A member of the RNA family "Small nucleolar RNA SNORA29" from Balearica regulorum, 136 nucleotides long. Lineage of the source: Eukaryota > Bilateria > Amniota > Archosauria > Balearica regulorum. The base pairs follow the family's consensus structure, which was predicted with PFOLD. It scores 113 bits against the family's covariance model. By type it is an H/ACA-box small nucleolar RNA. Its family is annotated with RNA processing and nucleolus in the Gene Ontology.
Nucleotides: 136
Base pairs, nucleotide, nucleotide: 004056005055006054007053016043017042018041019040071123072122073121074120089110090109091108
Number, partner (000 for none) and nucleotide at each position: 001000g002000u003000u004056c005055c006054c007053a008000u009000u010000a011000u012000a013000c014000u015000a016043c017042c018041a019040c020000u021000u022000u023000u024000u025000c026000a027000g028000u029000u030000u031000c032000c033000a034000g035000a036000u037000u038000a039000a040019g041018u042017g043016g044000c045000u046000a047000u048000g049000c050000u051000u052000g053007u054006g055005g056004g057000a058000u059000a060000g061000a062000g063000a064000a065000a066000a067000a068000c069000u070000u071123g072122c073121c074120a075000c076000g077000g078000u079000c080000u081000g082000a083000a084000g085000g086000a087000a088000a089110a090109g091108g092000u093000u094000g095000a096000u097000u098000g099000u100000a101000u102000c103000u104000u105000u106000u107000u108091c109090c110089u111000a112000u113000a114000u115000g116000a117000a118000g119000u120074u121073g122072g123071c124000a125000g126000a127000a128000c129000a130000u131000c132000u133000u134000u135000g136000a